[Rfam]
RNA sequence: AGAUACCAGGCUUGAAAAGACAGGCGCUGCAUGUUUACAUGCGGGCGCAUGUCCUUGAGAGCCGCGAAAACAUGAGAAAGAAGCCCGACAGGGCGGAUUUCGAAUGUUUUCAGGAUUUCGAAAGUGCGGAGCACGGAGAAAUCCGUGGUAUCG
Numbered sequence: 001a002g003a004u005a006c007c008a009g010g011c012u013u014g015a016a017a018a019g020a021c022a023g024g025c026g027c028u029g030c031a032u033g034u035u036u037a038c039a040u041g042c043g044g045g046c047g048c049a050u051g052u053c054c055u056u057g058a059g060a061g062c063c064g065c066g067a068a069a070a071c072a073u074g075a076g077a078a079a080g081a082a083g084c085c086c087g088a089c090a091g092g093g094c095g096g097a098u099u100u101c102g103a104a105u106g107u108u109u110u111c112a113g114g115a116u117u118u119c120g121a122a123a124g125u126g127c128g129g130a131g132c133a134c135g136g137a138g139a140a141a142u143c144c145g146u147g148g149u150a151u152c153g
Stems, first nucleotide, its partner, number of pairs: 002152006010062004016056002019053004024048005029042005066111008076101004083094004113144007124134004
Dot-bracket structure: .((((((..((((..((.((((.((((((((((....))))).))))).)))).))..))))...((((((((..((((...((((....))))...))))..)))))))).(((((((....((((...))))...)))))))..)))))).

The record is a 153-nucleotide sequence from Marvinbryantia formatexigens, which matches "Clostridiales-1 RNA" in Rfam. Lineage of the source: Bacteria > Bacillati > Clostridia > Marvinbryantia > Marvinbryantia formatexigens. The match comes from Rfam's covariance-model search (120 bits). It is annotated as a small RNA.